[Rfam]
The record is a 134-nucleotide sequence from Gambusia affinis, which matches "Small nucleolar RNA SNORA5" in Rfam. The family is grouped with related families in Rfam's "SNORA5 clan". A search with the family's covariance model found it, with a score of 80 bits. By type it is an H/ACA-box small nucleolar RNA. Rfam's curators write: ACA5 is a member of the H/ACA class of snoRNA that guide the sites of modification of uridines to pseudouridines. The family's consensus secondary structure was predicted with RNAfold. Lineage of the source: Eukaryota > Opisthokonta > Eurypterygia > Percomorphaceae > Gambusia.
RNA sequence: UGCAGCCUUGUCAAAUUCAGUGUGUCUCUUUGGUAGACAUCACUGGCCAAAAUGGCUGCCACAUAAACUGUAGUUCAUGGGCCCCACUUCCUCUCAAAAUAGCAAAUGGGGACAAAUCUGUACUACAGACAAUC
Numbered sequence: 001u002g003c004a005g006c007c008u009u010g011u012c013a014a015a016u017u018c019a020g021u022g023u024g025u026c027u028c029u030u031u032g033g034u035a036g037a038c039a040u041c042a043c044u045g046g047c048c049a050a051a052a053u054g055g056c057u058g059c060c061a062c063a064u065a066a067a068c069u070g071u072a073g074u075u076c077a078u079g080g081g082c083c084c085c086a087c088u089u090c091c092u093c094u095c096a097a098a099a100u101a102g103c104a105a106a107u108g109g110g111g112a113c114a115a116a117u118c119u120g121u122a123c124u125a126c127a128g129a130c131a132a133u134c
Stems, first nucleotide, its partner, number of pairs: 002059004018045005023039005070126005075120001082111005